[Rfam]
RNA: Acido-Lenti-1 RNA
RNA sequence: CCCGGCAAUGAAUUACCGGGCUAUUUUCUUCUGUCCCUUUGGGACA
Numbered sequence: 001c002c003c004g005g006c007a008a009u010g011a012a013u014u015a016c017c018g019g020g021c022u023a024u025u026u027u028c029u030u031c032u033g034u035c036c037c038u039u040u041g042g043g044a045c046a
Stems, first nucleotide, its partner, number of pairs: 001020005007014002033045005